[Rfam]
RNA sequence: GGUCUCGCCGGAAGCGAGACCGCCGAACAUGAAGGAG
Numbered sequence: 001g002g003u004c005u006c007g008c009c010g011g012a013a014g015c016g017a018g019a020c021c022g023c024c025g026a027a028c029a030u031g032a033a034g035g036a037g
Stems, first nucleotide, its partner, number of pairs: 001021008
A member of the RNA family "L31-Coriobacteria ribosomal protein leader" from Mesorhizobium hungaricum, 37 nucleotides long. Clan: Ribosomal Protein L31 Leader clan. The match comes from Rfam's covariance-model search (33 bits). The literature on the family includes a 2020 paper in BMC Microbiol by Eckert and Weinberg, "Discovery of 20 novel ribosomal leader candidates in bacteria and archaea". NCBI's taxonomy places the organism under Bacteria, Pseudomonadati, Alphaproteobacteria, Phyllobacteriaceae, Mesorhizobium.